[Rfam]
Shown here is a 153-nucleotide RNA from Rhodobacteraceae bacterium PD-2, a member of the family "Ruegeria cis2 sRNA". NCBI's taxonomy places the organism under Bacteria, Pseudomonadati, Pseudomonadota, Alphaproteobacteria, Paracoccaceae. For this family Rfam cites "Experimental Identification of Small Non-Coding RNAs in the Model Marine Bacterium Ruegeria pomeroyi DSS-3" (Rivers et al., Front Microbiol, 2016). The family's consensus secondary structure was predicted with RNAfold. It scores 117 bits against the family's covariance model.
RNA sequence: GUUGGAAUUCCGGGGGUUGUAAUCCACGAAAGCGUAACCACGGGACUGAUCGAUGGUGUGGAACAGUGGGUUCCAGUCGAACAUCACCAGCAUGUAGGUGGGCAGCGUAUUGGCCACGAACAUCUUGCCCGAGGCGAUCAUGUUGGCGCGCUG
Numbered sequence: 001g002u003u004g005g006a007a008u009u010c011c012g013g014g015g016g017u018u019g020u021a022a023u024c025c026a027c028g029a030a031a032g033c034g035u036a037a038c039c040a041c042g043g044g045a046c047u048g049a050u051c052g053a054u055g056g057u058g059u060g061g062a063a064c065a066g067u068g069g070g071u072u073c074c075a076g077u078c079g080a081a082c083a084u085c086a087c088c089a090g091c092a093u094g095u096a097g098g099u100g101g102g103c104a105g106c107g108u109a110u111u112g113g114c115c116a117c118g119a120a121c122a123u124c125u126u127g128c129c130c131g132a133g134g135c136g137a138u139c140a141u142g143u144u145g146g147c148g149c150g151c152u153g
Base pairs, nucleotide, nucleotide: 003034004033008030009029013025014024015023037057038056039055040054041052042051043050064153065152066151067150068149070082071081072080073079087146088145089144090143091142092141093140094139099133101130102129103127104126105125107123108122110119111118112117
Dot-bracket structure: ..((...((...(((.......)))...))..))..(((((((......))).))))......(((((.((((.....))))....((((((((....(.(((((.((.(((....)))..)).))).))..).....))))))))..)))))